[Rfam]
RNA sequence: GUACCAUUGGGAUGAAUCGGUGGUCCCUGACAUGAAACAAUCAUCAUCUUCACUUUGUCAGCUAAUAUAUUCUUUUCCUUUAGCUGAUCAUUAAUGAUGAAAUACUU
Numbered sequence: 001g002u003a004c005c006a007u008u009g010g011g012a013u014g015a016a017u018c019g020g021u022g023g024u025c026c027c028u029g030a031c032a033u034g035a036a037a038c039a040a041u042c043a044u045c046a047u048c049u050u051c052a053c054u055u056u057g058u059c060a061g062c063u064a065a066u067a068u069a070u071u072c073u074u075u076u077c078c079u080u081u082a083g084c085u086g087a088u089c090a091u092u093a094a095u096g097a098u099g100a101a102a103u104a105c106u107u
Stems, first nucleotide, its partner, number of pairs: 041100005057088008
RNA: Small nucleolar RNA snoR99
Organism: Ensete ventricosum